[Rfam]
RNA sequence: GGCGUACCGUGUCAGGUACUAGGUGACUCUGAGUGGCCGCUCUCGGAGCCGCCUCGUGCCUCAGCACGGCGCGCC
Numbered sequence: 001g002g003c004g005u006a007c008c009g010u011g012u013c014a015g016g017u018a019c020u021a022g023g024u025g026a027c028u029c030u031g032a033g034u035g036g037c038c039g040c041u042c043u044c045g046g047a048g049c050c051g052c053c054u055c056g057u058g059c060c061u062c063a064g065c066a067c068g069g070c071g072c073g074c075c
Base pairs, nucleotide, nucleotide: 001075002074003073004072005071007069008068009067014061015060016059017058018057019056022053023052024051025050027048028047029046030045031044032043033040034039
RNA: mir-306 microRNA precursor family